A member of the RNA family "Alphaproteobacteria transfer-messenger RNA" from Rhodoblastus sp., 361 nucleotides long. Rfam describes the family as follows. Bacterial tmRNA, also known as 10Sa RNA or SsrA, is named for its dual tRNA and mRNA-like properties. Rfam links the family to the GO term RNA catabolic process. By type it is a non-coding RNA gene. The family is grouped with related families in Rfam's "tRNA clan". A search with the family's covariance model found it, with a score of 261 bits.
[Rfam]
RNA sequence: CCUCUGGAAAAACGCGCCAGGACCGCUAUAUUGAUCGCGUCACGGCGGAGCGAUCCGUCGCGACUAUGGCGAUAAACGAUCAGCGUAAUAAGCCUUUCGGACCCGGGGCGGUACUGGCGCCUCCACCGGAGCCCGUUUCGCGAAGCGGGCUCCGGCGGGGGCGAAAUAGGAUCGACGAGGGUGUAAAGGUUGGUUUUUGCCCGGCAUGAUACCACCGUUAUCGGGUCAACCUUAUAGUUGCCAACGACAACUAUGCUCCGGUGGCCGUCGCCGCGUAAUGCGGUGAAGGUGCUGGGUUCAAGCCCUUGGGGUAGCACUCUAAGGCGGGGCUCGGAGGCGCCUGGCAACAGAAGCCUCCACU
Numbered sequence: 001c002c003u004c005u006g007g008a009a010a011a012a013c014g015c016g017c018c019a020g021g022a023c024c025g026c027u028a029u030a031u032u033g034a035u036c037g038c039g040u041c042a043c044g045g046c047g048g049a050g051c052g053a054u055c056c057g058u059c060g061c062g063a064c065u066a067u068g069g070c071g072a073u074a075a076a077c078g079a080u081c082a083g084c085g086u087a088a089u090a091a092g093c094c095u096u097u098c099g100g101a102c103c104c105g106g107g108g109c110g111g112u113a114c115u116g117g118c119g120c121c122u123c124c125a126c127c128g129g130a131g132c133c134c135g136u137u138u139c140g141c142g143a144a145g146c147g148g149g150c151u152c153c154g155g156c157g158g159g160g161g162c163g164a165a166a167u168a169g170g171a172u173c174g175a176c177g178a179g180g181g182u183g184u185a186a187a188g189g190u191u192g193g194u195u196u197u198u199g200c201c202c203g204g205c206a207u208g209a210u211a212c213c214a215c216c217g218u219u220a221u222c223g224g225g226u227c228a229a230c231c232u233u234a235u236a237g238u239u240g241c242c243a244a245c246g247a248c249a250a251c252u253a254u255g256c257u258c259c260g261g262u263g264g265c266c267g268u269c270g271c272c273g274c275g276u277a278a279u280g281c282g283g284u285g286a287a288g289g290u291g292c293u294g295g296g297u298u299c300a301a302g303c304c305c306u307u308g309g310g311g312u313a314g315c316a317c318u319c320u321a322a323g324g325c326g327g328g329g330c331u332c333g334g335a336g337g338c339g340c341c342u343g344g345c346a347a348c349a350g351a352a353g354c355c356u357c358c359a360c361u
Stems, first nucleotide, its partner, number of pairs: 039064003043060007068201005078195007093181003097178003103117004118163007202217003207228003212224002327342004333358006